Source information: Shown here is a 126-nucleotide RNA sequence from Rhizobium sp. NFR07, a member of the family "Alphaproteobacterial sRNA ar35". By type it is a small RNA. The pairing is the family consensus, mapped onto this sequence.
RNA sequence: AAAAUGUCGGCCUGCAACCUUCAGGCCGCCUAAUCAUAACUGGGUUCGUCCGUGACCACGGAUGUACUGGCACUGACGAGACCGAGUUAUCUACGAGGCCGGGCGAAUAGCCUGGCCUUUUUUGUU
Numbered sequence: 001a002a003a004a005u006g007u008c009g010g011c012c013u014g015c016a017a018c019c020u021u022c023a024g025g026c027c028g029c030c031u032a033a034u035c036a037u038a039a040c041u042g043g044g045u046u047c048g049u050c051c052g053u054g055a056c057c058a059c060g061g062a063u064g065u066a067c068u069g070g071c072a073c074u075g076a077c078g079a080g081a082c083c084g085a086g087u088u089a090u091c092u093a094c095g096a097g098g099c100c101g102g103g104c105g106a107a108u109a110g111c112c113u114g115g116c117c118u119u120u121u122u123u124g125u126u
Base pairs, nucleotide, nucleotide: 001031008028009027010026011025012024038088039087040086041085043083044082047078048077049076050075053072054071056070057069058068089125090124093121095119096118097117098116099115100114101113102112103111104110
Taxonomically the source falls in Rhizobium (Bacteria, Pseudomonadati, Pseudomonadota, Rhizobiaceae).